[Rfam]
The family of this 114-nucleotide sequence from Allacma fusca is "Potassium channel RNA editing signal". The family's RNA type in Rfam is cis-regulatory element. This family represents a group of sequences related to the human potassium channel Kv1.1 hairpin element which directs the efficient modification of an adenosine to inosine by an adenosine deaminase acting on RNA (ADAR). The ADAR modification causes an isoleucine/valine recoding event which lies in the ion-conducting pore of the potassium channel. It is thought that this editing event targets the process of fast inactivation and allows a more rapid recovery from inactivation at negative potentials.
RNA sequence: CUCAGGUACGGUGACAUGGUUCCCAAGACGAUAGCGGGAAAAGUAGUUGGAGGUGUGUGCUCUCUCAGCGGAGUGCUUGUCAUCGCUCUUCCAGUUCCAGUUAUCGUUUCCAAU
Numbered sequence: 001c002u003c004a005g006g007u008a009c010g011g012u013g014a015c016a017u018g019g020u021u022c023c024c025a026a027g028a029c030g031a032u033a034g035c036g037g038g039a040a041a042a043g044u045a046g047u048u049g050g051a052g053g054u055g056u057g058u059g060c061u062c063u064c065u066c067a068g069c070g071g072a073g074u075g076c077u078u079g080u081c082a083u084c085g086c087u088c089u090u091c092c093a094g095u096u097c098c099a100g101u102u103a104u105c106g107u108u109u110c111c112a113a114u
Stems, first nucleotide, its partner, number of pairs: 002113001005110001008107004013102003018097002021094001037077002040074001049063003
Dot-bracket structure: .(..(..((((.(((..((.(...............((.(........(((.........)))..........).))................).))..))).))))..)..).